[Rfam]
Shown here is a 132-nucleotide RNA from Corynebacterium alimapuense, a member of the family "atpB RNA".
The match comes from Rfam's covariance-model search (122 bits).
Nucleotides: 132
Stems, first nucleotide, its partner, number of pairs: 001046003005042007071098005079090004
Number, partner (000 for none) and nucleotide at each position: 001046c002045u003044g004000u005042c006041a007040c008039c009038g010037c011036c012000u013000c014000g015000c016000u017000g018000a019000u020000g021000u022000g023000c024000g025000a026000c027000g028000g029000a030000g031000u032000c033000c034000g035000u036011g037010g038009u039008g040007g041006u042005g043000u044003c045002a046001g047000a048000a049000g050000a051000g052000u053000u054000u055000u056000c057000a058000g059000a060000c061000g062000u063000c064000c065000a066000u067000c068000g069000c070000a071098c072097c073096g074095u075094g076000c077000u078000a079090g080089g081088a082087g083000a084000u085000g086000a087082c088081u089080c090079u091000c092000c093000a094075c095074a096073c097072g098071g099000c100000c101000c102000g103000a104000a105000c106000a107000c108000g109000g110000g111000a112000g113000a114000g115000a116000a117000c118000g119000c120000u121000g122000a123000g124000c125000g126000u127000u128000a129000c130000a131000a132000c